[Rfam]
Manganese Mn2+ riboswitch aptamer (yybP-ykoY): a 106-nucleotide RNA sequence from Neoundibacterium piscinae. The match comes from Rfam's covariance-model search (72 bits). For this family Rfam cites "Mn(2+)-sensing mechanisms of yybP-ykoY orphan riboswitches" (Price et al., Mol Cell, 2015). The organism belongs to Neoundibacterium, within Bacteria.
RNA sequence: CUCAUAUUCAUUGGGGAGUAGCCUCUUUCGGCACGCUGAAAGAAGCGCAUCAACAUACUUGGCCAUCCGGUCAUGGUGCGUUUGAUCAAAAUUUUUAUUUUGAUUU
Numbered sequence: 001c002u003c004a005u006a007u008u009c010a011u012u013g014g015g016g017a018g019u020a021g022c023c024u025c026u027u028u029c030g031g032c033a034c035g036c037u038g039a040a041a042g043a044a045g046c047g048c049a050u051c052a053a054c055a056u057a058c059u060u061g062g063c064c065a066u067c068c069g070g071u072c073a074u075g076g077u078g079c080g081u082u083u084g085a086u087c088a089a090a091a092u093u094u095u096u097a098u099u100u101u102g103a104u105u106u
Stems, first nucleotide, its partner, number of pairs: 026042003043083010060073005084105009